[Rfam]
RNA sequence: GCUGGCGUGGUCUAAUGGUUAUGAUUUCUCGUUCACAUGAAAGUGUUCCUUGACCCGAGAAGGUUCCGUGUUCGAUCCACGGCGCCAGUA
Numbered sequence: 001g002c003u004g005g006c007g008u009g010g011u012c013u014a015a016u017g018g019u020u021a022u023g024a025u026u027u028c029u030c031g032u033u034c035a036c037a038u039g040a041a042a043g044u045g046u047u048c049c050u051u052g053a054c055c056c057g058a059g060a061a062g063g064u065u066c067c068g069u070g071u072u073c074g075a076u077c078c079a080c081g082g083c084g085c086c087a088g089u090a
Stems, first nucleotide, its partner, number of pairs: 001089007010025003027060005066082005
Dot-bracket structure: (((((((..(((..........))).(((((........................))))).....(((((.......)))))))))))).

tRNA: a 90-nucleotide sequence from Monosporascus sp. MG133. The source organism's lineage runs through Eukaryota, Pezizomycotina, leotiomyceta, Xylariomycetidae and Monosporascus. The match comes from Rfam's covariance-model search (47 bits). A reference for the family is Hou (1993), "The tertiary structure of tRNA and the development of the genetic code", Trends Biochem Sci. The base pairs follow the family's consensus structure, which is taken from published work.